[Rfam]
RNA sequence: GGAGCCGCCCGGGCGAACGCGUCGGUCCUGCAGGGAAGGGGGCCGCCGAGGAAAGUCCGGGCACCACAGGGCAGCGUGCCGGCCAACGGCCGGUCGGGGCGACCCGCAGGAAAGUGCCACAGAGAACAGACCGCCGAACGGCGCCGGGCGACCGGCGUGCGUGGCAAGGGUGAAACGGUGCGGUAAGAGCGCACCGCGCGCCGGGUGACCGGCGCGGCACGGCAAACCCCACGCGGUGCAAGAGCGAAUAGGGAGGCGUCCCACCCGCGCGAGCGGGAGGGCAAGACCGGCCCGGUCCAGGCCUCCGGGUAUGCUCGCUGGAGACGCGCGGCAACGCGCGUCCGAGAUGAAUGUUCGUCGCCGCGGGGUUUCCCGCGGAACAGAACCCGGCUUACAGGGCGGCUCCGGUC
Number, nucleotide and partner (000 for none) at each position: 001g406002g405003a404004g403005c402006c401007g400008c399009c398010c397011g395012g359013g358014c357015g356016a355017a354018c353019g000020c048021g047022u000023c045024g044025g043026u042027c041028c040029u000030g000031c000032a000033g000034g000035g000036a000037a000038g000039g000040g028041g027042g026043c025044c024045g023046c000047c021048g020049a000050g000051g000052a000053a393054a392055g391056u000057c390058c389059g388060g387061g386062c238063a237064c236065c235066a000067c000068a000069g293070g292071g291072c290073a000074g234075c233076g232077u231078g230079c093080c092081g091082g090083c089084c000085a000086a000087c000088g000089g083090c082091c081092g080093g079094u108095c106096g105097g104098g103099g000100c000101g000102a000103c098104c097105c096106g095107c000108a094109g229110g228111a000112a000113a000114g227115u226116g223117c222118c221119a000120c000121a000122g000123a000124g000125a000126a000127c000128a000129g000130a000131c169132c168133g165134c164135c163136g000137a000138a000139c161140g160141g158142c157143g156144c155145c154146g153147g152148g000149c000150g000151a000152c147153c146154g145155g144156c143157g142158u141159g000160c140161g139162u000163g135164g134165c133166a000167a000168g132169g131170g000171u000172g000173a000174a000175a000176c000177g195178g194179u193180g192181c191182g190183g000184u000185a000186a000187g000188a000189g000190c182191g181192c180193a179194c178195c177196g218197c216198g215199c214200g213201c212202c211203g210204g209205g000206u000207g000208a000209c204210c203211g202212g201213c200214g199215c198216g197217g000218c196219a000220c000221g118222g117223c116224a000225a000226a115227c114228c110229c109230c078231a077232c076233g075234c074235g065236g064237u063238g062239c000240a000241a000242g316243a315244g314245c313246g000247a000248a000249u000250a000251g000252g306253g305254a304255g303256g302257c301258g000259u000260c000261c000262c000263a000264c000265c000266c000267g000268c000269g000270c000271g000272a000273g000274c000275g000276g000277g000278a000279g000280g000281g000282c000283a000284a000285g297286a296287c295288c294289g000290g072291c071292c070293c069294g288295g287296u286297c285298c000299a000300g000301g257302c256303c255304u254305c253306c252307g000308g000309g000310u000311a000312u000313g245314c244315u243316c242317g000318c000319u000320g000321g000322a000323g342324a341325c340326g339327c338328g337329c336330g335331g000332c000333a000334a000335c330336g329337c328338g327339c326340g325341u324342c323343c000344g000345a000346g000347a000348u000349g000350a000351a000352u000353g018354u017355u016356c015357g014358u013359c012360g000361c000362c000363g000364c000365g000366g000367g000368g000369u000370u000371u000372c000373c000374c000375g000376c000377g000378g000379a000380a000381c000382a000383g000384a000385a000386c061387c060388c059389g058390g057391c055392u054393u053394a000395c011396a000397g010398g009399g008400c007401g006402g005403c004404u003405c002406c001407g000408g000409u000410c000
The family of this 410-nucleotide RNA from Anaeromyxobacter dehalogenans is "Bacterial RNase P class A". By type it is a ribozyme.